The family of this 71-nucleotide RNA from Heliconius melpomene is "bantam microRNA precursor family".
A reference for the family is Weaver et al. (2007), "Computational and transcriptional evidence for microRNAs in the honey bee genome", Genome Biol.
The family's consensus secondary structure was predicted with RNAalifold.
NCBI's taxonomy places the organism under Eukaryota, Pancrustacea, Hexapoda, Panorpida, Heliconius.
[Rfam]
RNA sequence: ACGAGACUGGUUUUCAUAAUGAUUUGACAGAUUGAUACAUAUUCUGAGAUCAUUGUGAAAGCUAAUUUUGU
Numbered sequence: 001a002c003g004a005g006a007c008u009g010g011u012u013u014u015c016a017u018a019a020u021g022a023u024u025u026g027a028c029a030g031a032u033u034g035a036u037a038c039a040u041a042u043u044c045u046g047a048g049a050u051c052a053u054u055g056u057g058a059a060a061g062c063u064a065a066u067u068u069u070g071u
Stems, first nucleotide, its partner, number of pairs: 001071006008064010020052006